Source information
Rfam assigns this 81-nucleotide RNA sequence from Octodon degus to the family "Small nucleolar RNA ZL8". By type it is a C/D-box small nucleolar RNA. Rfam links the family to the GO terms RNA processing and nucleolus. On this family, see Kishore et al., Genome Biol 2013: "Insights into snoRNA biogenesis and processing from PAR-CLIP of snoRNA core proteins and small RNA sequencing". Pairs were carried over by alignment from the consensus structure, which was predicted with RNAfold. The match comes from Rfam's covariance-model search (62 bits).
RNA sequence: UAAGAGUGGGAAUGAUGACCUGGUUGGACUAGAGUCUCUGAGUUUCUUUGAGGAGCCUUGAAAGCACCUGAUCCAUUCUUG
Number, nucleotide and partner (000 for none) at each position: 001u000002a000003a080004g079005a000006g077007u075008g074009g073010g000011a000012a000013u000014g000015a000016u000017g000018a072019c000020c070021u000022g068023g067024u066025u000026g000027g000028a000029c000030u000031a000032g056033a000034g000035u053036c052037u051038c050039u000040g048041a047042g046043u000044u000045u000046c042047u041048u040049u000050g038051a037052g036053g035054a000055g000056c032057c000058u000059u000060g000061a000062a000063a000064g000065c000066a024067c023068c022069u000070g020071a000072u018073c009074c008075a007076u000077u006078c000079u004080u003081g000